[Rfam]
RNA sequence: UGUGUGCGCCCUUAAAAGAAAUCCCCAGCUAGGGGAGAGGUUGAAAAGCGGAUGCAAUUUCCGGCGCACACU
Numbered sequence: 001u002g003u004g005u006g007c008g009c010c011c012u013u014a015a016a017a018g019a020a021a022u023c024c025c026c027a028g029c030u031a032g033g034g035g036a037g038a039g040g041u042u043g044a045a046a047a048g049c050g051g052a053u054g055c056a057a058u059u060u061c062c063g064g065c066g067c068a069c070a071c072u
Stems, first nucleotide, its partner, number of pairs: 002071009022036005040049003050062003
The family of this 72-nucleotide RNA sequence is "RAGATH-21 RNA". The family's RNA type in Rfam is small RNA. It is one of the family's seed sequences.